[Rfam]
RNA sequence: AAGUGAGAACAUGGUUUUUUUUCGGAAAUGACUUGCGGCGAAGUAAAAAUAAUUUGCUGAUCAUUU
Numbered sequence: 001a002a003g004u005g006a007g008a009a010c011a012u013g014g015u016u017u018u019u020u021u022u023c024g025g026a027a028a029u030g031a032c033u034u035g036c037g038g039c040g041a042a043g044u045a046a047a048a049a050u051a052a053u054u055u056g057c058u059g060a061u062c063a064u065u066u
Base pairs, nucleotide, nucleotide: 001066002065003064004063005062006061
RNA: Small nucleolar RNA SNORD2
Organism: Hyalella azteca